[Rfam]
A member of the RNA family "Small nucleolar RNA R12" from Eragrostis curvula, 84 nucleotides long. The match comes from Rfam's covariance-model search (87 bits). It is annotated as a C/D-box small nucleolar RNA. Rfam's curators write: snoR12 is a C/D box small nucleolar RNA, which acts as a methylation guide for 25S ribosomal RNA in plants. snoR12 has been alternatively named snoZ44 in Arabidopsis and snoZ131 in rice. Gene Ontology terms of the family: nucleolus and RNA processing.
RNA sequence: GCGAGGAUGACGAAGAAAAUCAUUCGGAUUCCCAUUGAUUUCUUCCAGAAAUAUGAGAUCUGUAACCAGCUACUUCUGACUCGA
Numbered sequence: 001g002c003g004a005g006g007a008u009g010a011c012g013a014a015g016a017a018a019a020u021c022a023u024u025c026g027g028a029u030u031c032c033c034a035u036u037g038a039u040u041u042c043u044u045c046c047a048g049a050a051a052u053a054u055g056a057g058a059u060c061u062g063u064a065a066c067c068a069g070c071u072a073c074u075u076c077u078g079a080c081u082c083g084a
Stems, first nucleotide, its partner, number of pairs: 002083004